[Rfam]
RNA sequence: GGUCGAACCCACGGGAGCCCGCGAACCAGGGCUGAGAGGGCGGCAGGACCGGCCGUCGACCGUUCGAACCUGACCCGGUUAGCACCGGCGUAGGGAGGAACCGUCAUGGCCCG
Numbered sequence: 001g002g003u004c005g006a007a008c009c010c011a012c013g014g015g016a017g018c019c020c021g022c023g024a025a026c027c028a029g030g031g032c033u034g035a036g037a038g039g040g041c042g043g044c045a046g047g048a049c050c051g052g053c054c055g056u057c058g059a060c061c062g063u064u065c066g067a068a069c070c071u072g073a074c075c076c077g078g079u080u081a082g083c084a085c086c087g088g089c090g091u092a093g094g095g096a097g098g099a100a101c102c103g104u105c106a107u108g109g110c111c112c113g
Stems, first nucleotide, its partner, number of pairs: 009098002011063004017032004039057005069094004075088004